Description: Alphaproteobacterial sRNA ar45: a 153-nucleotide RNA sequence from Oharaeibacter diazotrophicus. NCBI's taxonomy places the organism under Bacteria, Pseudomonadati, Pseudomonadota, Pleomorphomonadaceae, Oharaeibacter. The family's RNA type in Rfam is small RNA. Pairs were carried over by alignment from the consensus structure. A search with the family's covariance model found it, with a score of 63 bits.
RNA sequence: GCCCAAUUUCGCACGUGCCUGUGGUUGCGUGCCGGCUUCGCAAGGGCCGCCGAGGCGGUUCCUGCGAGGGCAAGCCGGUGACCGGAGUCUAACCGGGUCUAAGCCGCUCUCAAGCGGCGGACGCGACUUGAAGCAACGACGUAGAGGGCUUUU
Numbered sequence: 001g002c003c004c005a006a007u008u009u010c011g012c013a014c015g016u017g018c019c020u021g022u023g024g025u026u027g028c029g030u031g032c033c034g035g036c037u038u039c040g041c042a043a044g045g046g047c048c049g050c051c052g053a054g055g056c057g058g059u060u061c062c063u064g065c066g067a068g069g070g071c072a073a074g075c076c077g078g079u080g081a082c083c084g085g086a087g088u089c090u091a092a093c094c095g096g097g098u099c100u101a102a103g104c105c106g107c108u109c110u111c112a113a114g115c116g117g118c119g120g121a122c123g124c125g126a127c128u129u130g131a132a133g134c135a136a137c138g139a140c141g142u143a144g145a146g147g148g149c150u151u152u153u
Stems, first nucleotide, its partner, number of pairs: 001149004009139003016135003023128008031075002035071001038067004083103001086100002104120004